[Rfam]
Nucleotides: 063
Stems, first nucleotide, its partner, number of pairs: 001063005015049010030037001
Number, partner (000 for none) and nucleotide at each position: 001063g002062u003061c004060a005059u006000u007000u008000u009000a010000a011000u012000g013000a014000u015049g016048u017047g018046g019045a020044u021043g022042g023041a024040g025000u026000a027000a028000a029000g030037c031000c032000u033000u034000c035000a036000a037030g038000a039000c040024c041023u042022u043021c044020a045019u046018u047017u048016g049015c050000u051000g052000a053000u054000g055000g056000g057000g058000c059005a060004u061003g062002a063001c

The record is a 63-nucleotide RNA sequence from Orycteropus afer, which matches "Selenocysteine insertion sequence 1" in Rfam. The incorporation of selenocysteine into a protein sequence is directed by an in-frame UGA codon (usually a stop codon) within the coding region of the mRNA. Selenoprotein mRNAs contain a conserved secondary structure in the 3' UTR that is required for the distinction of UGA stop from UGA selenocysteine. Gene Ontology term of the family: selenocysteine incorporation. It is annotated as a cis-regulatory element. A search with the family's covariance model found it, with a score of 35 bits. The family has 61 seed sequences and 3,793 matches in Rfam 15.1. For this family Rfam cites "A novel RNA structural motif in the selenocysteine insertion element of eukaryotic selenoprotein mRNAs" (Walczak et al., RNA, 1996).